[Rfam]
RNA: Bacterial RNase P class A
RNA sequence: CGAGUCGACCGGGCGGCCGCGUCAGCGGGGGAUACGUCCCCUGUUGCCGAGGAACGUCCGGACUCCACAGGGCAGGGUGGUUGCUAACGGCAACCCGGGGCGACCCGCGGGACAGUGCCACAGAAAACAGACCGCCGGGCGGUGAAACGCCCGGUAAGGGUGAAACGGUGGGGUAAGAGCCCACCAGCAUCCCGGGUGACCGGGAUGGCUCGGUAAACCCCACCCGGAGCAAGGCCAAGAGGGCCGGUGUCGCGAGACGCCGACCUGCGCAGGCGUUCGAGGGCUGCCCGCCCGAGUCUGCGGGUAGGCCGCUGGAGCCUGCCGGCGACGGUAGGCCUAGAUGGAUGGCCGCCACCGCUGCGCGACCGGGCAACCGGCGCGUACGGGACAGAAUCCGGCGUACAGGUCGACUCGUCCG
Numbered sequence: 001c002g003a004g005u006c007g008a009c010c011g012g013g014c015g016g017c018c019g020c021g022u023c024a025g026c027g028g029g030g031g032a033u034a035c036g037u038c039c040c041c042u043g044u045u046g047c048c049g050a051g052g053a054a055c056g057u058c059c060g061g062a063c064u065c066c067a068c069a070g071g072g073c074a075g076g077g078u079g080g081u082u083g084c085u086a087a088c089g090g091c092a093a094c095c096c097g098g099g100g101c102g103a104c105c106c107g108c109g110g111g112a113c114a115g116u117g118c119c120a121c122a123g124a125a126a127a128c129a130g131a132c133c134g135c136c137g138g139g140c141g142g143u144g145a146a147a148c149g150c151c152c153g154g155u156a157a158g159g160g161u162g163a164a165a166c167g168g169u170g171g172g173g174u175a176a177g178a179g180c181c182c183a184c185c186a187g188c189a190u191c192c193c194g195g196g197u198g199a200c201c202g203g204g205a206u207g208g209c210u211c212g213g214u215a216a217a218c219c220c221c222a223c224c225c226g227g228a229g230c231a232a233g234g235c236c237a238a239g240a241g242g243g244c245c246g247g248u249g250u251c252g253c254g255a256g257a258c259g260c261c262g263a264c265c266u267g268c269g270c271a272g273g274c275g276u277u278c279g280a281g282g283g284c285u286g287c288c289c290g291c292c293c294g295a296g297u298c299u300g301c302g303g304g305u306a307g308g309c310c311g312c313u314g315g316a317g318c319c320u321g322c323c324g325g326c327g328a329c330g331g332u333a334g335g336c337c338u339a340g341a342u343g344g345a346u347g348g349c350c351g352c353c354a355c356c357g358c359u360g361c362g363c364g365a366c367c368g369g370g371c372a373a374c375c376g377g378c379g380c381g382u383a384c385g386g387g388a389c390a391g392a393a394u395c396c397g398g399c400g401u402a403c404a405g406g407u408c409g410a411c412u413c414g415u416c417c418g
Base pairs, nucleotide, nucleotide: 001414002413003412004411005410006409007408008407009406010405011403012353013352014351015350016349017348018347020049021048023046024045025044026043027042028041029040030039031038054401055400056399058398059397060396061395062394063229064228065227066226070289071288072287073286075225076224077223078222079221080094081093082092083091084090095109096107097106098105099104110220111219115218116217117214118213119212132159133158134155135154136153137152138151139150140149141148167185168184169183170182171181172180187209188207189206190205191204192203193202194201195200233310234309235308236307243301244300246298247297248296281293282292283291284290317336318335319334320333321332322331323330324329
Dot-bracket structure: ((((((((((((((((((.((.(((((((((......))))))))).))....[[[.[[[[[((((...[[[[.((((((((((.....)))))(((((....)))).)((...(((((............((((((((((......))))))))..)).......((((((.......)))))).(((((((((....)))))))).)..)))..)))))))))))))...((((......((.(((................................((((.]]]]))))..))).)).....))))......((((((((....))))))))..........)))))))........................................]]]]]]]].).))))))))))....